About this RNA: Shown here is a 285-nucleotide RNA sequence from Sciurus vulgaris, a member of the family "Mason-Pfizer monkey virus packaging signal". The match comes from Rfam's covariance-model search (162 bits). The base pairs follow the family's consensus structure, which was predicted with PFOLD. Rfam's curators write: This family represents a group of sequences that are related to the Mason-Pfizer monkey virus (MPMV) packaging signal. The packaging signal is located in the 5' UTR and is required for specific RNA encapsidation.
RNA sequence: UGGCGACCAACGGUGUGGCUUUGAAUACGGGGGAAUUAGCGAGGGAAGAGGUGUCUAAGUGUUCGGCUGAAGGAAAAAAAAAGUGAAAGUCAGUUCCAUAAAGAUCGCUGCGGGAGCCUGCCAUGCCAUUCUUAAAGGUACAGUAGCACCUAAGUAUGGGACAAGAAUUAAGUAAGCAUAAAGUUUUUGUUAAGCAAUUAAAAGAAGCUUUAAAGACACAGGGAGUAAAGGUUAAGAGUAAUGAUCUUUUUAAGUUUUUUGACCUUAUUAAGGAUACCUGUCCGU
Numbered sequence: 001u002g003g004c005g006a007c008c009a010a011c012g013g014u015g016u017g018g019c020u021u022u023g024a025a026u027a028c029g030g031g032g033g034a035a036u037u038a039g040c041g042a043g044g045g046a047a048g049a050g051g052u053g054u055c056u057a058a059g060u061g062u063u064c065g066g067c068u069g070a071a072g073g074a075a076a077a078a079a080a081a082a083g084u085g086a087a088a089g090u091c092a093g094u095u096c097c098a099u100a101a102a103g104a105u106c107g108c109u110g111c112g113g114g115a116g117c118c119u120g121c122c123a124u125g126c127c128a129u130u131c132u133u134a135a136a137g138g139u140a141c142a143g144u145a146g147c148a149c150c151u152a153a154g155u156a157u158g159g160g161a162c163a164a165g166a167a168u169u170a171a172g173u174a175a176g177c178a179u180a181a182a183g184u185u186u187u188u189g190u191u192a193a194g195c196a197a198u199u200a201a202a203a204g205a206a207g208c209u210u211u212a213a214a215g216a217c218a219c220a221g222g223g224a225g226u227a228a229a230g231g232u233u234a235a236g237a238g239u240a241a242u243g244a245u246c247u248u249u250u251u252a253a254g255u256u257u258u259u260u261g262a263c264c265u266u267a268u269u270a271a272g273g274a275u276a277c278c279u280g281u282c283c284g285u
Base pairs, nucleotide, nucleotide: 007032008031013028014027015026038056039055095138096137099134100133104129109125110124112122113121144164146162149160150159151158152157169212170211171210172208173207219261220260221259222258223257224256225255226254229247230246231245232244233243234242270285272283273282274281275280